[Rfam]
Shown here is a 169-nucleotide RNA sequence from Bacillus sp. SJS, a member of the family "glmS glucosamine-6-phosphate activated ribozyme aptamer".
RNA sequence: GAGCAGCACAAAGCGCCUGAACUAAGCACGGACGACCCAUCGCUUAGUUGACGAGGAGGAGGUUUAUCGAUGAAUCGGCGGAUACCUCCCGGCUGUACGAUAGCAGCCGCAAGUCUUUCUUUAAAACAGCGGGGCAACCCGUUGGACAAAGAGAGGGACACUAAUCGAA
Numbered sequence: 001g002a003g004c005a006g007c008a009c010a011a012a013g014c015g016c017c018u019g020a021a022c023u024a025a026g027c028a029c030g031g032a033c034g035a036c037c038c039a040u041c042g043c044u045u046a047g048u049u050g051a052c053g054a055g056g057a058g059g060a061g062g063u064u065u066a067u068c069g070a071u072g073a074a075u076c077g078g079c080g081g082a083u084a085c086c087u088c089c090c091g092g093c094u095g096u097a098c099g100a101u102a103g104c105a106g107c108c109g110c111a112a113g114u115c116u117u118u119c120u121u122u123a124a125a126a127c128a129g130c131g132g133g134g135c136a137a138c139c140c141g142u143u144g145g146a147c148a149a150a151g152a153g154a155g156g157g158a159c160a161c162u163a164a165u166c167g168a169a
Stems, first nucleotide, its partner, number of pairs: 020049008058089005067078004090109006113159007127144007
It is annotated as a riboswitch. It scores 125 bits against the family's covariance model. The source organism's lineage runs through Bacteria, Bacillati, Bacilli, Caryophanales and Bacillus.